This 89-nucleotide sequence from Triticum urartu belongs to the Rfam family "Small nucleolar RNA SNORD25".
It is annotated as a C/D-box small nucleolar RNA.
Rfam 15.1 lists 985 matches to the family in 241 species.
The family's consensus secondary structure was predicted with PFOLD.
A reference for the family is Qu et al. (2001), "Identification of 10 novel snoRNA gene clusters from Arabidopsis thaliana", Nucleic Acids Res.
Rfam links the family to the GO terms nucleolus and RNA processing.
RNA sequence: AAUGACUCAAUGAGAGUUUUAGCAGACAUGUAAUUAUUCUUGCGGGAAUAAUUGGAAGAUUCAAAUCACAUCCAAGGGAUUGAGUUAUA
Number, nucleotide and partner (000 for none) at each position: 001a000002a088003u087004g086005a085006c084007u000008c000009a000010a000011u000012g000013a000014g000015a000016g000017u000018u000019u000020u000021a000022g000023c000024a000025g000026a000027c000028a000029u000030g000031u000032a000033a000034u000035u000036a000037u000038u000039c000040u000041u000042g000043c000044g000045g000046g000047a000048a000049u000050a000051a000052u000053u000054g000055g000056a000057a000058g000059a000060u000061u000062c000063a000064a000065a000066u000067c000068a000069c000070a000071u000072c000073c000074a000075a000076g000077g000078g000079a000080u000081u000082g000083a000084g006085u005086u004087a003088u002089a000